[Rfam]
RNA: Small nucleolar RNA SNORA42/SNORA80 family
Nucleotides: 139
Base pairs, nucleotide, nucleotide: 001060002059003058004057006054007053008052019048020047021046022045024043025042026041027039028038072132073131074130075129076128077127083122084121088117089116090113091112092111093110094109
Number, partner (000 for none) and nucleotide at each position: 001060g002059c003058a004057u005000a006054g007053g008052u009000u010000u011000u012000c013000a014000a015000g016000a017000a018000a019048a020047u021046g022045g023000c024043a025042g026041g027039c028038c029000u030000g031000u032000c033000c034000c035000c036000c037000u038028g039027g040000u041026u042025c043024u044000c045022u046021c047020a048019u049000a050000g051000u052008g053007u054006c055000c056000c057004a058003u059002g060001c061000a062000g063000a064000g065000c066000a067000a068000a069000u070000u071000g072132u073131g074130g075129c076128c077127u078000u079000g080000a081000a082000c083122c084121a085000u086000u087000g088117c089116c090113u091112g092111g093110c094109c095000u096000c097000u098000g099000c100000c101000u102000g103000u104000g105000g106000g107000c108000u109094g110093g111092c112091u113090a114000c115000a116089g117088g118000c119000a120000c121084u122083g123000a124000a125000g126000c127077a128076g129075g130074u131073u132072g133000c134000u135000c136000a137000g138000u139000g